[Rfam]
RNA sequence: GUGCCUUAAACUAAUGAGUAAGGAAAAUAUAGAGCCUUGUUAACUCUGGGUUCAGCUACCAAGUUAGCAAAUGUAAAUUUUUUAAAGAGGUAUAGGUCGUCCCCUUGAGUUCGCUGUCUACUUUUACAGUGAAUUCGGGUGAAGCGAUCUACCUC
Numbered sequence: 001g002u003g004c005c006u007u008a009a010a011c012u013a014a015u016g017a018g019u020a021a022g023g024a025a026a027a028u029a030u031a032g033a034g035c036c037u038u039g040u041u042a043a044c045u046c047u048g049g050g051u052u053c054a055g056c057u058a059c060c061a062a063g064u065u066a067g068c069a070a071a072u073g074u075a076a077a078u079u080u081u082u083u084a085a086a087g088a089g090g091u092a093u094a095g096g097u098c099g100u101c102c103c104c105u106u107g108a109g110u111u112c113g114c115u116g117u118c119u120a121c122u123u124u125u126a127c128a129g130u131g132a133a134u135u136c137g138g139g140u141g142a143a144g145c146g147a148u149c150u151a152c153c154u155c
Base pairs, nucleotide, nucleotide: 004023005022006021007020008019032053033052034051035050036049037048039046055068056067057066058065087155088154089153090152091151094150095149096148097147098146099145100144103139104138107136108135109134110133111132113130114129115128116127117126